[Rfam]
RNA sequence: GAGCUGGAGACUACAAUAUAGCUGCUAAGUGCUGUGUUGUCGUUCCCCCUGCUCAAAAUAAAGUUGUUUCUUAACUAUACCUGUCUGCUGUACUCCUGUAGCAGCCAGGGACGCUUGGUCUCAUACAU
Numbered sequence: 001g002a003g004c005u006g007g008a009g010a011c012u013a014c015a016a017u018a019u020a021g022c023u024g025c026u027a028a029g030u031g032c033u034g035u036g037u038u039g040u041c042g043u044u045c046c047c048c049c050u051g052c053u054c055a056a057a058a059u060a061a062a063g064u065u066g067u068u069u070c071u072u073a074a075c076u077a078u079a080c081c082u083g084u085c086u087g088c089u090g091u092a093c094u095c096c097u098g099u100a101g102c103a104g105c106c107a108g109g110g111a112c113g114c115u116u117g118g119u120c121u122c123a124u125a126c127a128u
Base pairs, nucleotide, nucleotide: 001048013040014039015038016037017036018035019034020033021032022031080109081108082107083106085104086103087102088101
This 128-nucleotide sequence from Eschrichtius robustus belongs to the Rfam family "Small nucleolar RNA SNORA63". The family has 8 seed sequences and 1,279 matches in Rfam 15.1. The match comes from Rfam's covariance-model search (138 bits). Lineage of the source: Eukaryota > Craniata > Teleostomi > Mammalia > Eschrichtius. E3 belongs to the H/ACA class of snoRNAs and is involved in the processing of eukaryotic pre-rRNA and has regions of complementarity to 18S rRNA. E3 is encoded in introns in the gene for protein synthesis initiation factor 4AII. Rfam classes the family as an H/ACA-box small nucleolar RNA.